[Rfam]
This 135-nucleotide RNA sequence from Sousa chinensis belongs to the Rfam family "Small nucleolar RNA SNORA70". It scores 110 bits against the family's covariance model. The family has 43 seed sequences and 5,173 matches in Rfam 15.1. The source organism's lineage runs through Eukaryota, Craniata, Theria, Laurasiatheria and Sousa.
RNA sequence: UUGCAGCCAGUCAAGCCGAAGGUGCUCUUUUCCUCGUGGGGGCCUGGUGUGCAAUGGUUGUGGACAGCAGCCUCCUCAGUAGUGCAUGCAGCUUGUUGCCUGUGCGGGUUGCCCUGAGGGACCUUGGAGAGAGCC
Numbered sequence: 001u002u003g004c005a006g007c008c009a010g011u012c013a014a015g016c017c018g019a020a021g022g023u024g025c026u027c028u029u030u031u032c033c034u035c036g037u038g039g040g041g042g043c044c045u046g047g048u049g050u051g052c053a054a055u056g057g058u059u060g061u062g063g064a065c066a067g068c069a070g071c072c073u074c075c076u077c078a079g080u081a082g083u084g085c086a087u088g089c090a091g092c093u094u095g096u097u098g099c100c101u102g103u104g105c106g107g108g109u110u111g112c113c114c115u116g117a118g119g120g121a122c123c124u125u126g127g128a129g130a131g132a133g134c135c
Stems, first nucleotide, its partner, number of pairs: 002053004019048001022045001025042004079122002089111006
Rfam's curators write: snoRNA U70 seems to be exclusive to mammals and is a member of the H/ACA class of snoRNA which contain H (ANANNA) and ACA box motifs. H/ACA box snoRNAs are involved in the conversion of uridines to pseudouridines (5-ribosyluracil) a constituent of structural RNAs (transfer, ribosomal, small nuclear, and small nucleolar).